[Rfam]
RNA sequence: GGUAAAAUGGCUGAGUGAAGCAUUGGACUGUAAAUCUAAAGACAGGGGUUAGGCCUCUUUUUACCA
Numbered sequence: 001g002g003u004a005a006a007a008u009g010g011c012u013g014a015g016u017g018a019a020g021c022a023u024u025g026g027a028c029u030g031u032a033a034a035u036c037u038a039a040a041g042a043c044a045g046g047g048g049u050u051a052g053g054c055c056u057c058u059u060u061u062u063a064c065c066a
Base pairs, nucleotide, nucleotide: 001065002064003063004062005061006060007059010021011020012019023039024038025037026036027035044058045057046056047055048054
Rfam assigns this 66-nucleotide RNA to the family "tRNA".
A reference for the family is Hou (1993), "The tertiary structure of tRNA and the development of the genetic code", Trends Biochem Sci.
The family is grouped with related families in Rfam's "tRNA clan".
Pairs were carried over by alignment from the consensus structure, which is taken from published work.